Guanidine-II riboswitch aptamer (mini-ykkC): a 45-nucleotide RNA from Streptomyces sp. SID8111. Rfam describes the family as follows. Simpler in structure and has fewer highly conserved nucleotide positions than the ykkC-yxkD leader. Despite this each of its two stem-loop structures directly bind free guanidine. Therefore, mini-ykkC RNA motif represents a distinct class of guanidine-sensing RNAs. Its crystal structure was also determined.
[Rfam]
RNA sequence: CCGCCGGGACGACCCGGCGGUGCGGUCACGAGCAGGGACGACCCG
Numbered sequence: 001c002c003g004c005c006g007g008g009a010c011g012a013c014c015c016g017g018c019g020g021u022g023c024g025g026u027c028a029c030g031a032g033c034a035g036g037g038a039c040g041a042c043c044c045g
Stems, first nucleotide, its partner, number of pairs: 001020008035044003